Shown here is a 121-nucleotide RNA sequence from Terribacillus sp. AE2B 122, a member of the family "ylbH leader".
Nucleotides: 121
Base pairs, nucleotide, nucleotide: 010033011032012031013030014029015028016027017026018025035068036067037066038065039057040056041055042054043053044052081118082117083116084115086114087113088112089111091110092109093108094107095106
Number, partner (000 for none) and nucleotide at each position: 001000a002000u003000a004000a005000a006000a007000a008000a009000a010033g011032c012031c013030u014029g015028c016027a017026g018025g019000a020000a021000g022000a023000g024000c025018c026017c027016u028015g029014c030013a031012g032011g033010c034000g035068c036067c037066u038065u039057u040056u041055g042054u043053u044052u045000c046000c047000a048000a049000u050000g051000a052044a053043a054042a055041c056040a057039a058000a059000c060000a061000g062000g063000c064000a065038a066037a067036g068035g069000g070000a071000g072000a073000g074000g075000a076000g077000a078000a079000a080000c081118c082117g083116g084115a085000g086114g087113a088112a089111g090000a091110a092109c093108u094107u095106a096000u097000g098000g099000g100000g101000a102000a103000a104000c105000g106095u107094a108093a109092g110091u111089c112088u113087u114086c115084u116083c117082c118081g119000u120000g121000u
Rfam describes the family as follows. This family is a putative regulatory RNA structure that is found upstream of the ylbH gene in B. subtilis and related low GC Gram-positive bacteria. The family's RNA type in Rfam is cis-regulatory leader. The source organism's lineage runs through Bacteria, Bacillati, Bacilli, Caryophanales and Terribacillus.